[Rfam]
RNA sequence: UUGGGGUAAAAUAGUGAGCAGCCUUCUUGGGGAAAAUACAUCAUCAACCCUUGGGCUAAAUUUAAAUCUGAUUUUUUUAUGCCCCAAGAAGAAUCUUUUUACCCACGGUAAAAAGUUUAUGGAGUAAAAAAAAGCACAUUUAAACUUAUUCCAAGGGUUGAUCACUUCCCCAAGUCGGCUACUCACUAUUUUACCCCGA
Number, nucleotide and partner (000 for none) at each position: 001u000002u000003g197004g196005g195006g194007u193008a192009a191010a190011a189012u188013a187014g186015u185016g184017a183018g182019c000020a180021g179022c178023c177024u000025u000026c174027u173028u172029g171030g170031g169032g168033a167034a166035a000036a000037u000038a000039c000040a000041u000042c000043a162044u161045c160046a159047a158048c157049c156050c000051u154052u153053g152054g151055g150056c000057u148058a147059a146060a000061u000062u143063u142064a141065a140066a139067u138068c000069u136070g135071a000072u133073u132074u131075u130076u129077u128078u127079a000080u000081g000082c124083c000084c122085c121086a120087a000088g000089a000090a000091g000092a000093a000094u000095c115096u114097u113098u112099u111100u110101a109102c108103c107104c000105a000106c000107g103108g102109u101110a100111a099112a098113a097114a096115g095116u000117u000118u000119a000120u086121g085122g084123a000124g082125u000126a000127a078128a077129a076130a075131a074132a073133a072134g000135c070136a069137c000138a067139u066140u065141u064142a063143a062144a000145c000146u059147u058148a057149u000150u055151c054152c053153a052154a051155g000156g049157g048158u047159u046160g045161a044162u043163c000164a000165c000166u034167u033168c032169c031170c030171c029172a028173a027174g026175u000176c000177g023178g022179c021180u020181a000182c018183u017184c016185a015186c014187u013188a012189u011190u010191u009192u008193a007194c006195c005196c004197c003198g000199a000
The family of this 199-nucleotide RNA from Medicago truncatula is "MIR2670 microRNA precursor family". A search with the family's covariance model found it, with a score of 123 bits. Rfam links the family to the GO terms miRNA-mediated post-transcriptional gene silencing and RISC complex. Rfam 15.1 lists 188 matches to the family in 2 species. The family's consensus secondary structure was predicted with RNAalifold. NCBI's taxonomy places the organism under Eukaryota, Streptophytina, eudicotyledons, Pentapetalae, Medicago.